[Rfam]
Shown here is a 180-nucleotide RNA sequence from Sodalis sp. Fse, a member of the family "SraG RNA". This RNA was discovered in E. coli during a large scale screen. Evidence was found for specific cleavage of this RNA. The literature on the family includes a 2001 paper in Curr Biol by Argaman et al., "Novel small RNA-encoding genes in the intergenic regions of Escherichia coli". A search with the family's covariance model found it, with a score of 73 bits.
RNA sequence: CUUCUCAUCACAUCCUCACGGCUAACGACAAUAUUUAUCCAGAUUAGAUAAAUAUUGUCGUUAGCCGUGCAUUCCUAAGCAAUGGAAGAAUCUAUAUUUAACGACUGACCGCAUGAGCAAUGACGGCCGCCACAAAAGUAUCACUGCCUAGAAGAAAGGGGCCUUAUGUGGCCCCUUUUA
Numbered sequence: 001c002u003u004c005u006c007a008u009c010a011c012a013u014c015c016u017c018a019c020g021g022c023u024a025a026c027g028a029c030a031a032u033a034u035u036u037a038u039c040c041a042g043a044u045u046a047g048a049u050a051a052a053u054a055u056u057g058u059c060g061u062u063a064g065c066c067g068u069g070c071a072u073u074c075c076u077a078a079g080c081a082a083u084g085g086a087a088g089a090a091u092c093u094a095u096a097u098u099u100a101a102c103g104a105c106u107g108a109c110c111g112c113a114u115g116a117g118c119a120a121u122g123a124c125g126g127c128c129g130c131c132a133c134a135a136a137a138g139u140a141u142c143a144c145u146g147c148c149u150a151g152a153a154g155a156a157a158g159g160g161g162c163c164u165u166a167u168g169u170g171g172c173c174c175c176u177u178u179u180a
Base pairs, nucleotide, nucleotide: 001088002087003086004085006084007083011079019069020068022064023063024062025061026060027059028058095132158175159174160173161172162171163170
Dot-bracket structure: ((((.((...(.......((.(((((((.............................)))))))...)).........)...))))))......(....................................).........................((((((......)))))).....